[Rfam]
The record is a 277-nucleotide RNA from Chloebia gouldiae, which matches "Small Cajal body-specific RNA 7" in Rfam. Rfam links the family to the GO terms nucleolus and RNA processing. Lineage of the source: Eukaryota > Euteleostomi > Sauropsida > Saurischia > Chloebia. It is annotated as a small Cajal body RNA.
RNA sequence: GAGAAGUGAUGACACGGAGAUAAUUGGGUGUGUUUGGAUGGAGGGUGUGUGUGAGGAGGGGAGCUGAGGCGGGGCUGGGGGUGUGUGUGGGUGUGUGGGGGGCUCUCGUGGGGGCACUGAUGGCAGUGCUGAGCCAGGAGUGCAUCUGAGGCGUGUUGGGCACCUCGGGGCCCCUCUGCAACACCGCCAGAGAUGAAAGCCCCAGGAAAGCCCCCAGGAGAGCCCCAGGCAGCCCAAAGGUCUCCAGGGUCACCUGUGAUCCUGUGCUCUGAUCUCA
Numbered sequence: 001g002a003g004a005a006g007u008g009a010u011g012a013c014a015c016g017g018a019g020a021u022a023a024u025u026g027g028g029u030g031u032g033u034u035u036g037g038a039u040g041g042a043g044g045g046u047g048u049g050u051g052u053g054a055g056g057a058g059g060g061g062a063g064c065u066g067a068g069g070c071g072g073g074g075c076u077g078g079g080g081g082u083g084u085g086u087g088u089g090g091g092u093g094u095g096u097g098g099g100g101g102g103c104u105c106u107c108g109u110g111g112g113g114g115c116a117c118u119g120a121u122g123g124c125a126g127u128g129c130u131g132a133g134c135c136a137g138g139a140g141u142g143c144a145u146c147u148g149a150g151g152c153g154u155g156u157u158g159g160g161c162a163c164c165u166c167g168g169g170g171c172c173c174c175u176c177u178g179c180a181a182c183a184c185c186g187c188c189a190g191a192g193a194u195g196a197a198a199g200c201c202c203c204a205g206g207a208a209a210g211c212c213c214c215c216a217g218g219a220g221a222g223c224c225c226c227a228g229g230c231a232g233c234c235c236a237a238a239g240g241u242c243u244c245c246a247g248g249g250u251c252a253c254c255u256g257u258g259a260u261c262c263u264g265u266g267c268u269c270u271g272a273u274c275u276c277a
Base pairs, nucleotide, nucleotide: 001276002275003274004273154183155182156181157180158179159174160173163170164169